[Rfam]
RNA: HIV pol-1 stem loop
RNA sequence: AUAGGUACAGUACUAGUAGGACCUACACCUGUCAACAUAAUUGGCAGAAACAUGUUGACUCAGCUUGGACGCACAUUAAACUUUCCAAUUAGUCCCAUUGAAACUGUACCAGU
Dot-bracket structure: ...((((((((..((((.((((........((((((((.............))))))))...(.((((................)))).).)))).))))..))))))))...